A member of the RNA family "SAM (S-adenosyl methionine) riboswitch aptamer" from Streptomyces sp. 846.5, 135 nucleotides long. The family has 40 seed sequences and 2,360 matches in Rfam 15.1. Rfam describes the family as follows. SAM-IV is a mRNA element that regulates gene expression via direct sensing of S-adenosylmethionine (SAM or AdoMet). A search with the family's covariance model found it, with a score of 90 bits. The family is grouped with related families in Rfam's "SAM clan". For this family Rfam cites "The aptamer core of SAM-IV riboswitches mimics the ligand-binding site of SAM-I riboswitches" (Weinberg et al., RNA, 2008).
Nucleotides: 135
Stems, first nucleotide, its partner, number of pairs: 001096004009054001011053006021046004055082003060078003064073002099124005105118004
Number, partner (000 for none) and nucleotide at each position: 001096g002095g003094u004093c005000a006000c007000g008000a009054g010000u011053g012052a013051c014050a015049g016048c017000g018000c019000g020000c021046g022045g023044u024043u025000u026000c027000u028000g029000a030000c031000c032000g033000c034000u035000g036000c037000a038000g039000c040000c041000c042000c043024g044023g045022c046021u047000u048016g049015c050014u051013g052012u053011c054009c055082g056081g057080c058000a059000a060078c061077c062076c063000u064073c065072c066000g067000u068000c069000c070000g071000u072065g073064g074000c075000g076062g077061g078060g079000u080057g081056c082055c083000u084000c085000c086000g087000g088000g089000u090000g091000a092000c093004g094003a095002c096001c097000a098000g099124g100123c101122c102121c103120u104000a105118c106117g107116g108115c109000a110000a111000c112000a113000a114000u115108g116107c117106c118105g119000c120103a121102g122101g123100g124099c125000a126000a127000g128000c129000a130000c131000g132000g133000a134000u135000c